[Rfam]
RNA sequence: AUAGUUCUUCAGGGCAGGGUGAAAUUCCCGACCGGCGGUAAAGUCCGCGAACCUUAAAUGGUUGAUUCAGUGAAAUUCUGAAACCGACAGUAAAGUCUGGAUGAAAGAAGGAACAA
Numbered sequence: 001a002u003a004g005u006u007c008u009u010c011a012g013g014g015c016a017g018g019g020u021g022a023a024a025u026u027c028c029c030g031a032c033c034g035g036c037g038g039u040a041a042a043g044u045c046c047g048c049g050a051a052c053c054u055u056a057a058a059u060g061g062u063u064g065a066u067u068c069a070g071u072g073a074a075a076u077u078c079u080g081a082a083a084c085c086g087a088c089a090g091u092a093a094a095g096u097c098u099g100g101a102u103g104a105a106a107g108a109a110g111g112a113a114c115a116a
Stems, first nucleotide, its partner, number of pairs: 005112006017029003031096002033086002035048004043084002051062003066082005088099003